c-di-AMP riboswitch aptamer (ydaO/yuaA leader): a 172-nucleotide sequence from Actinocatenispora sera. Lineage of the source: Bacteria > Bacillati > Actinomycetes > Micromonosporaceae > Actinocatenispora. The match comes from Rfam's covariance-model search (78 bits).
[Rfam]
RNA sequence: GAACGGGCACCGCCGAGUCGUCGCUCGGCGAGCCGGGGAUCCAACGGAUGCCGUCCGCGGCGUCCAUCCGGGGUGAAUCCGCCAGCUCUCCCGGAGAGCCGGUGGUAGGGCGAACUCACUUCUUCCCGCCCGAACCCGUCAGCUAACCCGGUAGGCGGUUGCGGGAGAAGGA
Numbered sequence: 001g002a003a004c005g006g007g008c009a010c011c012g013c014c015g016a017g018u019c020g021u022c023g024c025u026c027g028g029c030g031a032g033c034c035g036g037g038g039a040u041c042c043a044a045c046g047g048a049u050g051c052c053g054u055c056c057g058c059g060g061c062g063u064c065c066a067u068c069c070g071g072g073g074u075g076a077a078u079c080c081g082c083c084a085g086c087u088c089u090c091c092c093g094g095a096g097a098g099c100c101g102g103u104g105g106u107a108g109g110g111c112g113a114a115c116u117c118a119c120u121u122c123u124u125c126c127c128g129c130c131c132g133a134a135c136c137c138g139u140c141a142g143c144u145a146a147c148c149c150g151g152u153a154g155g156c157g158g159u160u161g162c163g164g165g166a167g168a169a170g171g172a
Stems, first nucleotide, its partner, number of pairs: 011157004018031003032152006042070001071137003079105004108131004
This family represents a conserved RNA structure found upstream of the ydaO and yuaA genes in Bacillus subtilis and related genes in other bacteria. The ydaO/yuaA element is thought to act as a genetic 'off' switch for the ydaO and yuaA genes in its native state. It is believed that the element may be triggered during osmotic shock leading to activation of ydaO, a predicted amino acid transporter gene, and members of the yuaA-yubG operon which code for KtrA and KtrB K+ transporters.